[Rfam]
RNA sequence: GUGAGGUGAUGAUGAAGUUUAUCCAUUCUCUGAGUGCAAUGGUGCUGUCCUCCUGUAGCACCCAGAUUCCUGUUCUAGGGUCUGGGUGCUGUGCAGCCUCCAGAAACCCUUCAGUCUUCUGGUGUUCUACUGGGGGCUGCUGCGGUCUGUGGCUGGCUGCCUACAGGAGUGAAGUGGUGCCAGUAGGGUUGGAACCCCUCUUUGGAGGUGCUUCAUCCCGACUGAGAUGAGGGAUGAUGUCUGAUCAC
Number, nucleotide and partner (000 for none) at each position: 001g000002u000003g000004a000005g000006g000007u000008g000009a000010u247011g246012a245013u244014g000015a000016a000017g240018u239019u000020u237021a000022u000023c233024c232025a000026u231027u230028c229029u000030c226031u225032g000033a000034g222035u221036g000037c000038a000039a184040u183041g000042g181043u179044g178045c177046u176047g175048u174049c000050c171051u168052c167053c166054u165055g164056u163057a162058g000059c088060a087061c086062c085063c084064a083065g082066a000067u000068u080069c079070c078071u077072g000073u000074u000075c000076u000077a071078g070079g069080g068081u000082c065083u064084g063085g062086g061087u060088g059089c000090u000091g000092u000093g160094c159095a158096g157097c156098c155099u000100c000101c000102a000103g000104a000105a000106a146107c145108c000109c000110u000111u000112c139113a138114g137115u136116c135117u134118u133119c132120u000121g131122g130123u129124g128125u000126u000127c000128u124129a123130c122131u121132g119133g118134g117135g116136g115137c114138u113139g112140c000141u000142g000143c000144g000145g107146u106147c000148u000149g000150u000151g000152g000153c000154u000155g098156g097157c096158u095159g094160c093161c000162u057163a056164c055165a054166g053167g052168a051169g000170u000171g050172a000173a000174g048175u047176g046177g045178u044179g043180c000181c042182a000183g040184u039185a000186g219187g218188g217189u000190u215191g214192g213193a212194a000195c208196c207197c000198c000199u000200c000201u000202u000203u000204g000205g000206a000207g196208g195209u000210g000211c000212u193213u192214c191215a190216u000217c188218c187219c186220g000221a035222c034223u000224g000225a031226g030227a000228u000229g028230a027231g026232g024233g023234a000235u000236g000237a020238u000239g018240u017241c000242u000243g000244a013245u012246c011247a010248c000
Shown here is a 248-nucleotide sequence from Ramphastos sulfuratus, a member of the family "Small nucleolar RNA SNORD17". The family has 19 seed sequences and 1,015 matches in Rfam 15.1. On this family, see Huttenhofer et al., EMBO J 2001: "RNomics: an experimental approach that identifies 201 candidates for novel, small, non-messenger RNAs in mouse". Lineage of the source: Eukaryota > Opisthokonta > Archosauria > Telluraves > Ramphastos. By type it is a C/D-box small nucleolar RNA. The base pairs follow the family's consensus structure, which was predicted with RNAalifold. A search with the family's covariance model found it, with a score of 127 bits. Rfam links the family to the GO terms nucleolus and RNA processing.